[Rfam]
The family of this 118-nucleotide sequence from Tetracentron sinense is "Small nucleolar RNA snoR104". It scores 114 bits against the family's covariance model. Taxonomically the source falls in Tetracentron (Eukaryota, Tracheophyta, Euphyllophyta, Trochodendraceae). The literature on the family includes a 2002 paper in Curr Biol by Marker et al., "Experimental RNomics: identification of 140 candidates for small non-messenger RNAs in the plant Arabidopsis thaliana". The base pairs follow the family's consensus structure, which was predicted with WAR.

RNA sequence: GGGGAGCAUCCAUAAGUCGAGAUGUUACCUGAUAUAAUCUUCCUACAGAAAACCUCUGUAGUUUCCUGCUUGCAGUUCUUGAGCAAGUUCUGCAAGUCUCAAAUAACCAGAGACAUGA
Numbered sequence: 001g002g003g004g005a006g007c008a009u010c011c012a013u014a015a016g017u018c019g020a021g022a023u024g025u026u027a028c029c030u031g032a033u034a035u036a037a038u039c040u041u042c043c044u045a046c047a048g049a050a051a052a053c054c055u056c057u058g059u060a061g062u063u064u065c066c067u068g069c070u071u072g073c074a075g076u077u078c079u080u081g082a083g084c085a086a087g088u089u090c091u092g093c094a095a096g097u098c099u100c101a102a103a104u105a106a107c108c109a110g111a112g113a114c115a116u117g118a
Base pairs, nucleotide, nucleotide: 001030002029003028005026006025007024008023009022010021055111056110057109068097069096070095071094072093073092074091075090078087079086